[Rfam]
RNA sequence: CUUUACCGAACCCAGCCACAACGGCCCGUCUCCGGCGCGCUCCUGGCCGUAGGUGGCAAGCAGGGCCUGUGCCUC
Numbered sequence: 001c002u003u004u005a006c007c008g009a010a011c012c013c014a015g016c017c018a019c020a021a022c023g024g025c026c027c028g029u030c031u032c033c034g035g036c037g038c039g040c041u042c043c044u045g046g047c048c049g050u051a052g053g054u055g056g057c058a059a060g061c062a063g064g065g066c067c068u069g070u071g072c073c074u075c
Stems, first nucleotide, its partner, number of pairs: 015025003031071001033069001038065001043060002047056003
A member of the RNA family "ASpks TB sRNA" from Streptomyces cellostaticus, 75 nucleotides long. Pairs were carried over by alignment from the consensus structure, which is taken from published work.